[Rfam]
Notes
Shown here is an 87-nucleotide RNA from Paracoccus denitrificans, a member of the family "chrB-a RNA". The family has 163 seed sequences and 347 matches in Rfam 15.1. The organism belongs to Paracoccus denitrificans, within Bacteria. Rfam classes the family as a cis-regulatory element.
RNA sequence: GGCAUGGGGUCUUGCGACGCCCCACGAGGCGCCAGCCGAAGUUCGCGUUCCAUUCCGACAACUGACUCAAUGGAGGGAACGCAGAUG
Numbered sequence: 001g002g003c004a005u006g007g008g009g010u011c012u013u014g015c016g017a018c019g020c021c022c023c024a025c026g027a028g029g030c031g032c033c034a035g036c037c038g039a040a041g042u043u044c045g046c047g048u049u050c051c052a053u054u055c056c057g058a059c060a061a062c063u064g065a066c067u068c069a070a071u072g073g074a075g076g077g078a079a080c081g082c083a084g085a086u087g
Base pairs, nucleotide, nucleotide: 005024006023007022008021009020010019045082046081047080048079049078050077
Dot-bracket structure: ....((((((........))))))....................((((((..........................)))))).....